[Rfam]
Source information:
This 75-nucleotide sequence from Paraliobacillus sp. PM-2 belongs to the Rfam family "Group II catalytic intron D1-D4-1". Pairs were carried over by alignment from the consensus structure. Group II introns are found in rRNA, tRNA and mRNA of organelles in fungi, plants and protists, and also in mRNA in bacteria. For this family Rfam cites "Group II introns: structure and catalytic versatility of large natural ribozymes" (Lehmann and Schmidt, Crit Rev Biochem Mol Biol, 2003).
RNA sequence: CAAUCAUGGCAGUGAUGUUGUGAUGAAUUGUAAGAAGUCAGCAGAAGCCAUAGUAGUCCUAAAUGGAUGAAGGGC
Numbered sequence: 001c002a003a004u005c006a007u008g009g010c011a012g013u014g015a016u017g018u019u020g021u022g023a024u025g026a027a028u029u030g031u032a033a034g035a036a037g038u039c040a041g042c043a044g045a046a047g048c049c050a051u052a053g054u055a056g057u058c059c060u061a062a063a064u065g066g067a068u069g070a071a072g073g074g075c
Stems, first nucleotide, its partner, number of pairs: 001025002004023008038045002047075003056068004